[Rfam]
RNA sequence: CUGCAUACCAGUAGACCUUGUCUGGUUUUUCAAAUAGCCAUACAAGGGGGAUGGUGCAUGCAACAAAAACCUGGGGUUGCUGCUGGCUGUGAUCAGCCUUGAUGUGACUGAUUGAGCUGCCAUACUCCGACAUAA
Numbered sequence: 001c002u003g004c005a006u007a008c009c010a011g012u013a014g015a016c017c018u019u020g021u022c023u024g025g026u027u028u029u030u031c032a033a034a035u036a037g038c039c040a041u042a043c044a045a046g047g048g049g050g051a052u053g054g055u056g057c058a059u060g061c062a063a064c065a066a067a068a069a070c071c072u073g074g075g076g077u078u079g080c081u082g083c084u085g086g087c088u089g090u091g092a093u094c095a096g097c098c099u100u101g102a103u104g105u106g107a108c109u110g111a112u113u114g115a116g117c118u119g120c121c122a123u124a125c126u127c128c129g130a131c132a133u134a135a
Stems, first nucleotide, its partner, number of pairs: 003061004008056001016047006023040002073128004078124001082120002093111004
Background
Rfam assigns this 135-nucleotide sequence from Anseranas semipalmata to the family "Small nucleolar RNA SNORA58". The literature on the family includes a 2001 paper in EMBO J by Huttenhofer et al., "RNomics: an experimental approach that identifies 201 candidates for novel, small, non-messenger RNAs in mouse". From the family's description: ACA52 is a member of the H/ACA class of snoRNA that guide the sites of modification of uridines to pseudouridines. The organism belongs to Anseranas, within Eukaryota. Pairs were carried over by alignment from the consensus structure, which was predicted with PFOLD. Its Rfam clan is "SNORA44 clan".